Source information:
A member of the RNA family "Plant signal recognition particle RNA" from Centaurea solstitialis, 304 nucleotides long. The family has 63 seed sequences and 4,988 matches in Rfam 15.1. The family's RNA type in Rfam is non-coding RNA gene. Lineage of the source: Eukaryota > asterids > Asterales > Centaureinae > Centaurea.

[Rfam]
RNA sequence: GCCGGGCUUGGUAACGCGAGCCUGUAACUCGAGUGAGGGCAUUAAGAUGGUUGGACUGUGAUUGAGCCCAGAUUGGUUGGGUUCUAUGGUUGCGAUAUCUGGCCUGCCCGUUCCAAGUUUGGAGUUGGACCAUGUGGUUUAGGCGAAGGCCUGGGCUCCAUGGUUCCUAAAGCAGAGGGCAAUGCGUUAGGCUGGCUUCACAGAGCUGCGAAAACCUCUCGCUCCAAACAGUGGAAGGAUUACAGGCCGGUGCUUCCUUGGCCCAAAUAACCAGCUGGGUUCCUUCUGAUGGACUCCCAUCUUU
Numbered sequence: 001g002c003c004g005g006g007c008u009u010g011g012u013a014a015c016g017c018g019a020g021c022c023u024g025u026a027a028c029u030c031g032a033g034u035g036a037g038g039g040c041a042u043u044a045a046g047a048u049g050g051u052u053g054g055a056c057u058g059u060g061a062u063u064g065a066g067c068c069c070a071g072a073u074u075g076g077u078u079g080g081g082u083u084c085u086a087u088g089g090u091u092g093c094g095a096u097a098u099c100u101g102g103c104c105u106g107c108c109c110g111u112u113c114c115a116a117g118u119u120u121g122g123a124g125u126u127g128g129a130c131c132a133u134g135u136g137g138u139u140u141a142g143g144c145g146a147a148g149g150c151c152u153g154g155g156c157u158c159c160a161u162g163g164u165u166c167c168u169a170a171a172g173c174a175g176a177g178g179g180c181a182a183u184g185c186g187u188u189a190g191g192c193u194g195g196c197u198u199c200a201c202a203g204a205g206c207u208g209c210g211a212a213a214a215c216c217u218c219u220c221g222c223u224c225c226a227a228a229c230a231g232u233g234g235a236a237g238g239a240u241u242a243c244a245g246g247c248c249g250g251u252g253c254u255u256c257c258u259u260g261g262c263c264c265a266a267a268u269a270a271c272c273a274g275c276u277g278g279g280u281u282c283c284u285u286c287u288g289a290u291g292g293a294c295u296c297c298c299a300u301c302u303u304u
Stems, first nucleotide, its partner, number of pairs: 001040003004023007028037003044303007053294001056291001060286001061284001064281002068278004073273001075272004079264005088256001092253003099250008108238002111236005117229009127166008136157009167172001174219005183212001185210003192203003